[Rfam]
RNA sequence: GCCGUGGAUUAGGUAGUUUCAUGUUGUUGGGCUCGGAGUUUCAACCGCAAGAACAUCGAACUGCCUGGUUCACCGC
Numbered sequence: 001g002c003c004g005u006g007g008a009u010u011a012g013g014u015a016g017u018u019u020c021a022u023g024u025u026g027u028u029g030g031g032c033u034c035g036g037a038g039u040u041u042c043a044a045c046c047g048c049a050a051g052a053a054c055a056u057c058g059a060a061c062u063g064c065c066u067g068g069u070u071c072a073c074c075g076c
Stems, first nucleotide, its partner, number of pairs: 004073016022055004027050003031046001

The family of this 76-nucleotide RNA from Donacobius atricapilla is "mir-196 microRNA precursor family". The match comes from Rfam's covariance-model search (60 bits). The literature on the family includes a 2003 paper in RNA by Lagos-Quintana et al., "New microRNAs from mouse and human". The family's consensus secondary structure was predicted with PFOLD.